This 99-nucleotide RNA sequence from Citrus unshiu belongs to the Rfam family "Small nucleolar RNA R64/Z200 family". The source organism's lineage runs through Eukaryota, Streptophytina, Pentapetalae, Rutaceae and Citrus. Gene Ontology terms of the family: nucleolus and RNA processing. The match comes from Rfam's covariance-model search (80 bits). By type it is a C/D-box small nucleolar RNA.
[Rfam]
RNA sequence: CUACUGCUGUGAUGAUUUAUGAAUGAAUUCACAUGUCAGACUUCAGAGAUUUUUUUGAAAAAAUCUAUGAGAAUGGAUAUUCGUAAUUCUGAGCAGUUA
Numbered sequence: 001c002u003a004c005u006g007c008u009g010u011g012a013u014g015a016u017u018u019a020u021g022a023a024u025g026a027a028u029u030c031a032c033a034u035g036u037c038a039g040a041c042u043u044c045a046g047a048g049a050u051u052u053u054u055u056u057g058a059a060a061a062a063a064u065c066u067a068u069g070a071g072a073a074u075g076g077a078u079a080u081u082c083g084u085a086a087u088u089c090u091g092a093g094c095a096g097u098u099a
Stems, first nucleotide, its partner, number of pairs: 003097005048065006
Dot-bracket structure: ..(((((........................................((((((......))))))...........................)))))..